[Rfam]
RNA sequence: CAUCCCGAUGAUGAUGUAUAUGGAAUGUUAAAAGUAGUGUCUGAUAUAUUUACAAUCGUUGGAUGAUAGAUAAAUACAUAGAGGGAUG
Numbered sequence: 001c002a003u004c005c006c007g008a009u010g011a012u013g014a015u016g017u018a019u020a021u022g023g024a025a026u027g028u029u030a031a032a033a034g035u036a037g038u039g040u041c042u043g044a045u046a047u048a049u050u051u052a053c054a055a056u057c058g059u060u061g062g063a064u065g066a067u068a069g070a071u072a073a074a075u076a077c078a079u080a081g082a083g084g085g086a087u088g
Stems, first nucleotide, its partner, number of pairs: 001088006